A member of the RNA family "mraW RNA" from Chlamydomonas incerta, 137 nucleotides long. The match comes from Rfam's covariance-model search (52 bits).
[Rfam]
RNA sequence: CUGACCGUGACCGUGCCGAACCCUGACCGUGACCCCCAACCCUGACCGUGACCGUGCCGAUACCUGAUCGUGACCGUGACCGUCACGGUCAGGGUUGGGGGUCACGGUCAGGGAUCAGCACGGUCAGGGUCAGGGUU
Dot-bracket structure: ........(((((((..((.((((((((((((((.(((((((((((((((((.............................))))))))))))))))).)))))))))))))).))..)))))))............